mir-315 microRNA precursor family: a 79-nucleotide RNA sequence from Nezara viridula. Lineage of the source: Eukaryota > Eumetazoa > Hexapoda > Pentatominae > Nezara. The family's consensus secondary structure was predicted with RNAalifold. On this family, see Stark et al., Genome Res 2007: "Systematic discovery and characterization of fly microRNAs using 12 Drosophila genomes".
RNA sequence: GUUUCACGUGGUUUUGAUUGUUGCUCAGAAAGCCUUUUGUUUAGUUGGCUUUCUAGCAAUAAUCAUAAUCAUGAAGAGG
Number, nucleotide and partner (000 for none) at each position: 001g000002u078003u077004u076005c000006a000007c073008g000009u000010g000011g000012u068013u067014u000015u065016g064017a063018u062019u000020g060021u059022u058023g057024c056025u055026c000027a000028g053029a052030a051031a050032g049033c048034c047035u000036u000037u000038u000039g000040u000041u000042u000043a000044g000045u000046u000047g034048g033049c032050u031051u030052u029053c028054u000055a025056g024057c023058a022059a021060u020061a000062a018063u017064c016065a015066u000067a013068a012069u000070c000071a000072u000073g007074a000075a000076g004077a003078g002079g000